[Rfam]
RNA sequence: GGAUGCAUUACUGGGCAAUUACUCCUUUGGCAGUUGGUCAGUGACCUACUACCUGCAUGUAUACUAUACAGUUAUAUAUGUUUAUAUGAUUAUAUUAAACGUAGUCUGUGCUCACUGCCAAAGGAGAUUUGCCCCGCAAUUCAUCA
Numbered sequence: 001g002g003a004u005g006c007a008u009u010a011c012u013g014g015g016c017a018a019u020u021a022c023u024c025c026u027u028u029g030g031c032a033g034u035u036g037g038u039c040a041g042u043g044a045c046c047u048a049c050u051a052c053c054u055g056c057a058u059g060u061a062u063a064c065u066a067u068a069c070a071g072u073u074a075u076a077u078a079u080g081u082u083u084a085u086a087u088g089a090u091u092a093u094a095u096u097a098a099a100c101g102u103a104g105u106c107u108g109u110g111c112u113c114a115c116u117g118c119c120a121a122a123g124g125a126g127a128u129u130u131g132c133c134c135c136g137c138a139a140u141u142c143a144u145c146a
Stems, first nucleotide, its partner, number of pairs: 005142001007140003011136001013134006022126004028120007036112003
mir-399 microRNA precursor family: a 146-nucleotide sequence from Pyrus ussuriensis x Pyrus communis. Gene Ontology terms of the family: miRNA-mediated post-transcriptional gene silencing and RISC complex. Rfam's curators write: mir-399 was identified in both Arabidopsis thaliana and Oryza sativa computationally and was later experimentally verified. mir-399 is thought to target mRNAs coding for a phosphatase transporter. The mature sequence is excised from the 3' arm of the hairpin. Lineage of the source: Eukaryota > Embryophyta > Magnoliopsida > eudicotyledons > Pyrus. The match comes from Rfam's covariance-model search (75 bits).